[Rfam]
Nucleotides: 059
Base pairs, nucleotide, nucleotide: 009051010050012048013047014046015045027044028043029042030041031040032039
Number, partner (000 for none) and nucleotide at each position: 001000a002000g003000g004000a005000c006000a007000c008000c009051c010050c011000a012048u013047u014046c015045a016000c017000g018000a019000c020000g021000g022000a023000u024000c025000g026000u027044c028043c029042g030041g031040c032039a033000c034000g035000u036000a037000c038000c039032u040031g041030c042029c043028g044027g045015u046014g047013a048012a049000g050010g051009g052000a053000u054000g055000u056000a057000c058000a059000u
This 59-nucleotide RNA sequence from Sanguibacter suaedae belongs to the Rfam family "msiK RNA".
Pairs were carried over by alignment from the consensus structure, which is taken from published work.
Lineage of the source: Bacteria > Bacillati > Micrococcales > Sanguibacteraceae > Sanguibacter.